[Rfam]
RNA sequence: UCGUGCUAGACGGGGAACUAGCGGUGCCCUGUACCCGCAAUCCGCUAUAGCGGGGUCGAAUUCCCCUUCGCGGUCCGGCCCUUUAGGACUGGCUCCGCCAAGCGGCGAUGAUGGUUGGGUCCCACACGGCGGAAGCCCGCGAACCCCGCCAGGUCCGGGAGGAAGCAACGGUAAGCGGUCACUUCCGGGUGUUGUGGGGUAGCCUAACCGGAGCUAGCUAGCGAGAGCUAAGCUGGAGGGUCGAGAUCAACAAGGGGUGCACGA
Numbered sequence: 001u002c003g004u005g006c007u008a009g010a011c012g013g014g015g016a017a018c019u020a021g022c023g024g025u026g027c028c029c030u031g032u033a034c035c036c037g038c039a040a041u042c043c044g045c046u047a048u049a050g051c052g053g054g055g056u057c058g059a060a061u062u063c064c065c066c067u068u069c070g071c072g073g074u075c076c077g078g079c080c081c082u083u084u085a086g087g088a089c090u091g092g093c094u095c096c097g098c099c100a101a102g103c104g105g106c107g108a109u110g111a112u113g114g115u116u117g118g119g120u121c122c123c124a125c126a127c128g129g130c131g132g133a134a135g136c137c138c139g140c141g142a143a144c145c146c147c148g149c150c151a152g153g154u155c156c157g158g159g160a161g162g163a164a165g166c167a168a169c170g171g172u173a174a175g176c177g178g179u180c181a182c183u184u185c186c187g188g189g190u191g192u193u194g195u196g197g198g199g200u201a202g203c204c205u206a207a208c209c210g211g212a213g214c215u216a217g218c219u220a221g222c223g224a225g226a227g228c229u230a231a232g233c234u235g236g237a238g239g240g241u242c243g244a245g246a247u248c249a250a251c252a253a254g255g256g257g258u259g260c261a262c263g264a
Base pairs, nucleotide, nucleotide: 001264002263003262004261005260006259009057010056011055012030013029014028015027017025018024019023034054035053036052037051038050063257064256065255066254067253068252072248073247074246075245077242078241079240080239081238082237083236084235085234086233091228094225096223097222098221102218103217104215105214106213112210113209114208115207116206117205118204119203120202121198122197123196124195125194126193127189130187131186132185133184134183135180137178138177139176140175146171147170148169154163155162156161